[Rfam]
RNA sequence: UAUUUCCUUCGGGGACAGGUGUAAUUCCGUACCGGCGGUAAUCCACAGCAAGGUGGCAGCCCGCGAGCCGCAAGGCAGGACUCCGGUGAGAUUCCGGGGCCGACAGUUAAAGUCUGGAUGGGAGAAGGGUAAA
Numbered sequence: 001u002a003u004u005u006c007c008u009u010c011g012g013g014g015a016c017a018g019g020u021g022u023a024a025u026u027c028c029g030u031a032c033c034g035g036c037g038g039u040a041a042u043c044c045a046c047a048g049c050a051a052g053g054u055g056g057c058a059g060c061c062c063g064c065g066a067g068c069c070g071c072a073a074g075g076c077a078g079g080a081c082u083c084c085g086g087u088g089a090g091a092u093u094c095c096g097g098g099g100c101c102g103a104c105a106g107u108u109a110a111a112g113u114c115u116g117g118a119u120g121g122g123a124g125a126a127g128g129g130u131a132a133a
Stems, first nucleotide, its partner, number of pairs: 003131001005129006018028002031113002033102002035064004059100002067076003082098005104116003
Shown here is a 133-nucleotide sequence from Thermanaerosceptrum fracticalcis, a member of the family "FMN riboswitch aptamer (RFN element)". NCBI's taxonomy places the organism under Bacteria, Bacillati, Eubacteriales, Peptococcaceae, Thermanaerosceptrum. Pairs were carried over by alignment from the consensus structure, which is taken from published work.